c-di-GMP-I riboswitch aptamer: an 83-nucleotide sequence from Methylophaga thalassica. Rfam links the family to the GO term cyclic-di-GMP binding. The match comes from Rfam's covariance-model search (41 bits). Rfam describes the family as follows. GEMM was predicted in a large-scale screen for bacterial structured RNA regulatory elements. Taxonomically the source falls in Methylophaga thalassica (Bacteria, Pseudomonadati, Gammaproteobacteria, Methylophaga).

RNA sequence: ACAUAUUAUCGCCAAACCUGAUGUGAGUCAGGGACGGAAAACCUACAGCUGUGCAUUAGUGGCAUCAGGGCUGGGCUGCAUGA
Numbered sequence: 001a002c003a004u005a006u007u008a009u010c011g012c013c014a015a016a017c018c019u020g021a022u023g024u025g026a027g028u029c030a031g032g033g034a035c036g037g038a039a040a041a042c043c044u045a046c047a048g049c050u051g052u053g054c055a056u057u058a059g060u061g062g063c064a065u066c067a068g069g070g071c072u073g074g075g076c077u078g079c080a081u082g083a
Stems, first nucleotide, its partner, number of pairs: 012037002017032006040077001042075002046073003049068003056062002